[Rfam]
RNA sequence: GUGGGUUUUGAAAGUGCUUUGUGUUCAUGGCUGGUGCAAUCAGGGGUGAGCUGAAACUAACCCCCAGCUUAGGAAACAGAGUUAUUCCUCAUGUGGCUGACUCUGUGCCGAAAACAUGGGAACAACC
Numbered sequence: 001g002u003g004g005g006u007u008u009u010g011a012a013a014g015u016g017c018u019u020u021g022u023g024u025u026c027a028u029g030g031c032u033g034g035u036g037c038a039a040u041c042a043g044g045g046g047u048g049a050g051c052u053g054a055a056a057c058u059a060a061c062c063c064c065c066a067g068c069u070u071a072g073g074a075a076a077c078a079g080a081g082u083u084a085u086u087c088c089u090c091a092u093g094u095g096g097c098u099g100a101c102u103c104u105g106u107g108c109c110g111a112a113a114a115c116a117u118g119g120g121a122a123c124a125a126c127c
Stems, first nucleotide, its partner, number of pairs: 006045005018034002021031001022029002062120003066117001067115001069113002072109002077105006086096002
The record is a 127-nucleotide RNA from Pipistrellus kuhlii, which matches "Small nucleolar RNA SNORA65" in Rfam. Rfam describes the family as follows. U65 belongs to the H/ACA class of snoRNAs which are thought to guide the sites of modification of uridines to pseudouridines. Pairs were carried over by alignment from the consensus structure, which was predicted with RNAalifold. The family's RNA type in Rfam is H/ACA-box small nucleolar RNA. Taxonomically the source falls in Pipistrellus (Eukaryota, Opisthokonta, Vertebrata, Sarcopterygii). It scores 73 bits against the family's covariance model.